[Rfam]
RNA: Group II catalytic intron D1-D4-1
RNA sequence: UAACCACUAUCGAGAGGUAGUGUUGAACGUACAGAAGUCAGCCGAGGUCAUAGUAGUCGAGUACCACAGGGUACUUCGGUGAAGGAC
Numbered sequence: 001u002a003a004c005c006a007c008u009a010u011c012g013a014g015a016g017g018u019a020g021u022g023u024u025g026a027a028c029g030u031a032c033a034g035a036a037g038u039c040a041g042c043c044g045a046g047g048u049c050a051u052a053g054u055a056g057u058c059g060a061g062u063a064c065c066a067c068a069g070g071g072u073a074c075u076u077c078g079g080u081g082a083a084g085g086a087c
Stems, first nucleotide, its partner, number of pairs: 001025002005022007038045002047087003056080006